[Rfam]
RNA: ASpks TB sRNA
Organism: Saccharothrix syringae
RNA sequence: CUUCACCGACCCCAGCCACAGGGGUUCCUCGCGGUCCUGCCCGUAGGUCGCCAGCAGGGCCUGCGCCUC
Numbered sequence: 001c002u003u004c005a006c007c008g009a010c011c012c013c014a015g016c017c018a019c020a021g022g023g024g025u026u027c028c029u030c031g032c033g034g035u036c037c038u039g040c041c042c043g044u045a046g047g048u049c050g051c052c053a054g055c056a057g058g059g060c061c062u063g064c065g066c067c068u069c
Stems, first nucleotide, its partner, number of pairs: 014026004028065001030063001032059001037054003041050001043048001
Dot-bracket structure: .............((((.....)))).(.(.(....(((.(.(....).).)))....)...).)....